The record is a 296-nucleotide RNA sequence from Setaria viridis, which matches "Plant signal recognition particle RNA" in Rfam. The organism belongs to Setaria, within Eukaryota.
RNA sequence: GCCGAGCUCGGUUGUGCAGGCUUGUAACCCAAGUGGGGGCAUUAAGGUGGUGUGGAUGUUUGGUGCAGACUCUGGGCUUGGGUCUGUGGUGUGCCCUUGCUAGCCCUGCCCGUCCCAAGUUGGUAGUGGCCUGUUCGGCCCUAGCAAAAGUUCGGUCUUCACCGAACCUGAAGUGGUAGGAACGGUGGAGGCUGGCUUCACGGAGCAGCGACACUGCCCGCUUUCAAUGGUGGAGGAUAACAGAUAGCUACAUCAUGGGUCCGACCUGGACCUCGAGGAGCCGGCGGUGAGGAUCG
Numbered sequence: 001g002c003c004g005a006g007c008u009c010g011g012u013u014g015u016g017c018a019g020g021c022u023u024g025u026a027a028c029c030c031a032a033g034u035g036g037g038g039g040c041a042u043u044a045a046g047g048u049g050g051u052g053u054g055g056a057u058g059u060u061u062g063g064u065g066c067a068g069a070c071u072c073u074g075g076g077c078u079u080g081g082g083u084c085u086g087u088g089g090u091g092u093g094c095c096c097u098u099g100c101u102a103g104c105c106c107u108g109c110c111c112g113u114c115c116c117a118a119g120u121u122g123g124u125a126g127u128g129g130c131c132u133g134u135u136c137g138g139c140c141c142u143a144g145c146a147a148a149a150g151u152u153c154g155g156u157c158u159u160c161a162c163c164g165a166a167c168c169u170g171a172a173g174u175g176g177u178a179g180g181a182a183c184g185g186u187g188g189a190g191g192c193u194g195g196c197u198u199c200a201c202g203g204a205g206c207a208g209c210g211a212c213a214c215u216g217c218c219c220g221c222u223u224u225c226a227a228u229g230g231u232g233g234a235g236g237a238u239a240a241c242a243g244a245u246a247g248c249u250a251c252a253u254c255a256u257g258g259g260u261c262c263g264a265c266c267u268g269g270a271c272c273u274c275g276a277g278g279a280g281c282c283g284g285c286g287g288u289g290a291g292g293a294u295c296g
Base pairs, nucleotide, nucleotide: 001040002039003038004023005022006021007020008019010017028037029036030035048296049295050294051293053291056288057287058285059284061283062282063281064280066278070277071276072275074273075272076271078269079268080262081261082260083259084258085257086256087255089254091253092252093251099248100247101246102245106243107242108241110236111235113234115233116232117231119228120227121226122225123224125222126221127220128167131164133162134161137158138157140155141154143152144151145150168173175218176217177216178215179214184212186210187209192203193202194201
The match comes from Rfam's covariance-model search (119 bits). The base pairs follow the family's consensus structure, which is taken from published work.